[Rfam]
RNA sequence: CUGGCUGCCGAAAGGGGUCGGCGUGCAGUCAGAAGCUGCAUUAAUCUUGUGUCCAUGUUGCUCAAAGGAGAAUAUGGCUAUGAGAG
Numbered sequence: 001c002u003g004g005c006u007g008c009c010g011a012a013a014g015g016g017g018u019c020g021g022c023g024u025g026c027a028g029u030c031a032g033a034a035g036c037u038g039c040a041u042u043a044a045u046c047u048u049g050u051g052u053c054c055a056u057g058u059u060g061c062u063c064a065a066a067g068g069a070g071a072a073u074a075u076g077g078c079u080a081u082g083a084g085a086g
Stems, first nucleotide, its partner, number of pairs: 001021006008015002024040005046084006053077007061070003

Rfam assigns this 86-nucleotide RNA from Acetobacter senegalensis to the family "Repression of heat shock gene expression (ROSE) element". On this family, see Nocker et al., Nucleic Acids Res 2001: "A mRNA-based thermosensor controls expression of rhizobial heat shock genes". The match comes from Rfam's covariance-model search (56 bits). The family has 13 seed sequences and 381 matches in Rfam 15.1. From the family's description: This family represents a 5' UTR cis-regulatory element found in heat shock mRNAs and is known as the ROSE (repression of heat shock gene expression) element. The ROSE element is a negative regulator of heat shock gene expression. The secondary structure is thought to be regulated by temperature. This regulation blocks access to the ribosome binding site under normal conditions. During heat shock however, the structure changes freeing the ribosome binding site and allowing expression to occur.